[Rfam]
RNA sequence: ACGACCCCCGGCACAGAUCACGCAACUUGGGUAAAGUCAUCGAUACCUUUACGUGUGGUUUUGCCGACCUCAUGGGGUAC
Numbered sequence: 001a002c003g004a005c006c007c008c009c010g011g012c013a014c015a016g017a018u019c020a021c022g023c024a025a026c027u028u029g030g031g032u033a034a035a036g037u038c039a040u041c042g043a044u045a046c047c048u049u050u051a052c053g054u055g056u057g058g059u060u061u062u063g064c065c066g067a068c069c070u071c072a073u074g075g076g077g078u079a080c
Base pairs, nucleotide, nucleotide: 003080004078005077006076007075008074009066010065011064012063013062015061016060017059018058019057020056021055022054023053029048030047031046032045033044036041
RNA: SL669 non-coding RNA
Organism: Orthohepacivirus hominis